mir-14 microRNA precursor family: a 64-nucleotide RNA sequence from Agrilus planipennis. Taxonomically the source falls in Agrilus (Eukaryota, Insecta, Coleoptera, Buprestoidea). The base pairs follow the family's consensus structure, which was predicted with RNAalifold.
RNA sequence: AACAGGGGAGAGGAAUUAGGCUUACUUUAUUUAAAAACAAGUCAGUCUUUUUCUCUCUCCUAUU
Numbered sequence: 001a002a003c004a005g006g007g008g009a010g011a012g013g014a015a016u017u018a019g020g021c022u023u024a025c026u027u028u029a030u031u032u033a034a035a036a037a038c039a040a041g042u043c044a045g046u047c048u049u050u051u052u053c054u055c056u057c058u059c060c061u062a063u064u
Stems, first nucleotide, its partner, number of pairs: 001064002004061005010055004018048005024042004